mir-124 microRNA precursor family: a 72-nucleotide RNA sequence from Panagrolaimus sp. PS1159. Lineage of the source: Eukaryota > Ecdysozoa > Chromadorea > Panagrolaimoidea > Panagrolaimus. Rfam links the family to the GO terms miRNA-mediated post-transcriptional gene silencing and RISC complex.
[Rfam]
RNA sequence: UGCAUUUGGCUUUCAUCAGUGACUUUGGUGUGAAUAAUAGACUACUAAGGCACGCGGUGAAUGCCAAUUGCG
Numbered sequence: 001u002g003c004a005u006u007u008g009g010c011u012u013u014c015a016u017c018a019g020u021g022a023c024u025u026u027g028g029u030g031u032g033a034a035u036a037a038u039a040g041a042c043u044a045c046u047a048a049g050g051c052a053c054g055c056g057g058u059g060a061a062u063g064c065c066a067a068u069u070g071c072g
Stems, first nucleotide, its partner, number of pairs: 003070002006067001009064002012061005019055003023050008